[Rfam]
RNA sequence: GUUCUGCAGUGAUGAUUUAAGAAUCAAAUUCACAUGUCAGACUUCAGAGAUUUUUCAAAUCCAUGAGAAUGACAAUUCUGUUACUGAGCAGAAU
Numbered sequence: 001g002u003u004c005u006g007c008a009g010u011g012a013u014g015a016u017u018u019a020a021g022a023a024u025c026a027a028a029u030u031c032a033c034a035u036g037u038c039a040g041a042c043u044u045c046a047g048a049g050a051u052u053u054u055u056c057a058a059a060u061c062c063a064u065g066a067g068a069a070u071g072a073c074a075a076u077u078c079u080g081u082u083a084c085u086g087a088g089c090a091g092a093a094u
Stems, first nucleotide, its partner, number of pairs: 001094007049061004